[Rfam]
RNA sequence: UUUGAGGCGAUGACCCUUUCCUCAAAUUAUCGACUAUGGUUAUACUGUGCGAUUUUUGAGGAGUUCUCUUUGGACAAGACUCUAAGCCAGAUGUUCUGACCAAA
Numbered sequence: 001u002u003u004g005a006g007g008c009g010a011u012g013a014c015c016c017u018u019u020c021c022u023c024a025a026a027u028u029a030u031c032g033a034c035u036a037u038g039g040u041u042a043u044a045c046u047g048u049g050c051g052a053u054u055u056u057u058g059a060g061g062a063g064u065u066c067u068c069u070u071u072g073g074a075c076a077a078g079a080c081u082c083u084a085a086g087c088c089a090g091a092u093g094u095u096c097u098g099a100c101c102a103a104a
Stems, first nucleotide, its partner, number of pairs: 001104004
Rfam assigns this 104-nucleotide RNA from Dichanthelium oligosanthes to the family "Small nucleolar RNA Z103". The family's RNA type in Rfam is C/D-box small nucleolar RNA. The family's consensus secondary structure was predicted with PFOLD. On this family, see Chen et al., Nucleic Acids Res 2003: "The high diversity of snoRNAs in plants: identification and comparative study of 120 snoRNA genes from Oryza sativa". NCBI's taxonomy places the organism under Eukaryota, Panicoideae, Panicodae, Dichantheliinae, Dichanthelium.